[Rfam]
RNA sequence: UUGAUAGUCGCGAGAGAGGUCCUUGUCGUUUGUGAGGACGCCGAAGGUGCAAGUCUCUGCUGAAGACGUGGGGGCGAAACUCUCAGGCAAAAGGAUCGCGAUUAGACG
Numbered sequence: 001u002u003g004a005u006a007g008u009c010g011c012g013a014g015a016g017a018g019g020u021c022c023u024u025g026u027c028g029u030u031u032g033u034g035a036g037g038a039c040g041c042c043g044a045a046g047g048u049g050c051a052a053g054u055c056u057c058u059g060c061u062g063a064a065g066a067c068g069u070g071g072g073g074g075c076g077a078a079a080c081u082c083u084c085a086g087g088c089a090a091a092a093g094g095a096u097c098g099c100g101a102u103u104a105g106a107c108g
Stems, first nucleotide, its partner, number of pairs: 006103008020038004040088003043084002047082001049080001053075008
Annotation: This 108-nucleotide RNA sequence from Anaerohalosphaera lusitana belongs to the Rfam family "Glycine riboswitch aptamer". This family represents the bacterial glycine riboswitch. Glycine riboswitches usually consist of two metabolite-binding aptamers domains with similar structures in tandem. The aptamers cooperatively bind glycine to regulate the expression of downstream genes. In Bacillus subtilis, this riboswitch is found upstream of the gcvT operon which controls glycine degradation. A search with the family's covariance model found it, with a score of 67 bits.